[Rfam]
RNA sequence: GGUCAUGAGUGCCAGCAGAUAGCUCCGGCUUGCUGGCCGGCAACCCUCCUACCGCGGUGGGGUGCCCCGGAUGACGACCUGGCCCGGUGCGAGGUGCACCAGGCAAGCGCGGACC
Number, nucleotide and partner (000 for none) at each position: 001g079002g078003u077004c076005a000006u000007g000008a000009g038010u000011g037012c036013c035014a034015g033016c032017a000018g000019a000020u000021a030022g029023c000024u000025c000026c000027g000028g000029c022030u021031u000032g016033c015034u014035g013036g012037c011038c009039g066040g065041c064042a000043a000044c062045c061046c060047u000048c057049c056050u000051a000052c000053c000054g000055c000056g049057g048058u000059g000060g046061g045062g044063u000064g041065c040066c039067c000068c000069g000070g000071a000072u000073g000074a000075c000076g004077a003078c002079c001080u000081g000082g104083c103084c102085c000086g100087g099088u098089g097090c096091g095092a000093g000094g000095u091096g090097c089098a088099c087100c086101a000102g084103g083104c082105a000106a000107g000108c000109g000110c000111g000112g000113a000114c000115c000

About this RNA:
A member of the RNA family "SAM (S-adenosyl methionine) riboswitch aptamer", 115 nucleotides long. Rfam describes the family as follows. SAM-IV is a mRNA element that regulates gene expression via direct sensing of S-adenosylmethionine (SAM or AdoMet). SAM-IV riboswitches share conserved nucleotide positions with the previously described SAM-I riboswitches sequence analysis and molecular recognition experiments suggest that SAM-I and SAM-IV riboswitches share similar ligand binding sites, but have different scaffolds. The family's consensus secondary structure is taken from published work.